Shown here is a 180-nucleotide RNA from Sulfitobacter sediminilitoris, a member of the family "Ruegeria cis52 sRNA". NCBI's taxonomy places the organism under Bacteria, Pseudomonadota, Alphaproteobacteria, Roseobacteraceae, Sulfitobacter. The match comes from Rfam's covariance-model search (119 bits). The family has 2 seed sequences and 277 matches in Rfam 15.1. Its family is annotated with regulation of gene expression in the Gene Ontology. A reference for the family is Rivers et al. (2016), "Experimental Identification of Small Non-Coding RNAs in the Model Marine Bacterium Ruegeria pomeroyi DSS-3", Front Microbiol.
Nucleotides: 180
Stems, first nucleotide, its partner, number of pairs: 004142002007140001009138001011136003016131001017129001020127001022125001031122001039114001041112003047106001049104001051102005056076008083097004146180001148178001150175004155166001157164002
Number, partner (000 for none) and nucleotide at each position: 001000u002000u003000g004142c005141g006000c007140a008000a009138c010000g011136c012135g013134u014000g015000c016131u017129u018000c019000a020127g021000a022125a023000c024000a025000a026000u027000g028000u029000c030000a031122g032000a033000g034000a035000a036000u037000u038000u039114c040000a041112c042111u043110c044000c045000c046000u047106u048000c049104a050000g051102g052101c053100g054099g055098g056076c057075c058074g059073u060072g061071c062070g063069g064000a065000u066000g067000u068000a069063c070062u071061g072060c073059g074058c075057g076056g077000u078000c079000a080000u081000c082000a083097c084096c085095u086094c087000g088000g089000c090000c091000a092000u093000g094086g095085a096084g097083g098055c099054c100053c101052g102051c103000g104049u105000c106047a107000u108000c109000c110043g111042g112041g113000c114039g115000a116000u117000a118000u119000a120000g121000c122031c123000c124000a125022u126000a127020c128000c129017g130000u131016a132000a133000a134013g135012c136011g137000a138009g139000a140007u141005c142004g143000u144000c145000a146180g147000c148178a149000c150175c151174g152173g153172c154000a155166g156000a157164a158163a159000g160000a161000a162000g163158u164157u165000c166155c167000a168000g169000a170000a171000a172153g173152u174151c175150g176000c177000a178148u179000c180146c